[Rfam]
RNA sequence: CUCCAGUGAUGACUUAUUUUAUGUGCCACGUGUCUGGGCCACUGAUUAUUAAUGAUGGGAUUGAGGAACUGAGGAG
Numbered sequence: 001c002u003c004c005a006g007u008g009a010u011g012a013c014u015u016a017u018u019u020u021a022u023g024u025g026c027c028a029c030g031u032g033u034c035u036g037g038g039c040c041a042c043u044g045a046u047u048a049u050u051a052a053u054g055a056u057g058g059g060a061u062u063g064a065g066g067a068a069c070u071g072a073g074g075a076g
Stems, first nucleotide, its partner, number of pairs: 001076004

Shown here is a 76-nucleotide RNA from Myripristis murdjan, a member of the family "Small nucleolar RNA SNORD66". NCBI's taxonomy places the organism under Eukaryota, Deuterostomia, Gnathostomata, Ctenosquamata, Myripristis. The family has 20 seed sequences and 1,346 matches in Rfam 15.1. The literature on the family includes a 2001 paper in EMBO J by Huttenhofer et al., "RNomics: an experimental approach that identifies 201 candidates for novel, small, non-messenger RNAs in mouse". Its family is annotated with RNA processing and nucleolus in the Gene Ontology. Rfam classes the family as a C/D-box small nucleolar RNA. A search with the family's covariance model found it, with a score of 92 bits. Pairs were carried over by alignment from the consensus structure, which was predicted with RNAalifold.